[Rfam]
RNA sequence: GCCCUGGGCUUGUGCUUGGGGAGUCAGUGGUGGAUUCUGACCCCCAUGCACCCCUGCAGGCCCACUGGCCUCAUCCUUCACCCCUGCCAACCACACUUGCCCUGUGCCU
Numbered sequence: 001g002c003c004c005u006g007g008g009c010u011u012g013u014g015c016u017u018g019g020g021g022a023g024u025c026a027g028u029g030g031u032g033g034a035u036u037c038u039g040a041c042c043c044c045c046a047u048g049c050a051c052c053c054c055u056g057c058a059g060g061c062c063c064a065c066u067g068g069c070c071u072c073a074u075c076c077u078u079c080a081c082c083c084c085u086g087c088c089a090a091c092c093a094c095a096c097u098u099g100c101c102c103u104g105u106g107c108c109u
Stems, first nucleotide, its partner, number of pairs: 001107002004104001006102004011095004017086005023081002026078002029075005039069001041068002048061002

The record is a 109-nucleotide RNA sequence from Macaca nemestrina, which matches "mir-1257 microRNA precursor family" in Rfam. Gene Ontology terms of the family: RISC complex and miRNA-mediated post-transcriptional gene silencing. The base pairs follow the family's consensus structure, which was predicted with RNAalifold.